This 92-nucleotide RNA sequence from Tetranychus urticae belongs to the Rfam family "mir-133 microRNA precursor family". Rfam's curators put it in the seed alignment. Rfam 15.1 lists 3,763 matches to the family in 801 species. mir-133 was first experimentally characterised in mouse and homologues have since been discovered in several other species. The mature sequence is excised from the 3' arm of the hairpin. Its family is annotated with RISC complex and miRNA-mediated post-transcriptional gene silencing in the Gene Ontology. For this family Rfam cites "Identification of tissue-specific microRNAs from mouse" (Lagos-Quintana et al., Curr Biol, 2002). The organism belongs to Tetranychus, within Eukaryota.
[Rfam]
RNA sequence: CAUCUUUAGUUGGUUGAAUCCGGGCCAAAUUGAUUUUGUUUAAGCACAGAAUUAUUAAAUAAUAUUUGGUCCCCUUCAACCAGCUGUAGAUA
Number, nucleotide and partner (000 for none) at each position: 001c000002a000003u090004c089005u088006u000007u000008a085009g084010u083011u082012g081013g080014u079015u078016g077017a076018a075019u000020c000021c000022g071023g070024g000025c069026c068027a067028a066029a065030u064031u000032g000033a000034u000035u000036u000037u000038g000039u000040u000041u000042a000043a000044g000045c000046a000047c000048a000049g000050a000051a000052u000053u000054a000055u000056u000057a000058a000059a000060u000061a000062a000063u000064a030065u029066u028067u027068g026069g025070u023071c022072c000073c000074c000075u018076u017077c016078a015079a014080c013081c012082a011083g010084c009085u008086g000087u000088a005089g004090a003091u000092a000